RNA: Actino-pnp RNA
RNA sequence: GCCGGUCCUCGGUAGUGGCCGCAGGGGGACGCGGUUCCCCUGGGCUUCGAUCGAUGACCGGC
Numbered sequence: 001g002c003c004g005g006u007c008c009u010c011g012g013u014a015g016u017g018g019c020c021g022c023a024g025g026g027g028g029a030c031g032c033g034g035u036u037c038c039c040c041u042g043g044g045c046u047u048c049g050a051u052c053g054a055u056g057a058c059c060g061g062c
Stems, first nucleotide, its partner, number of pairs: 001062007009054005017046004024039005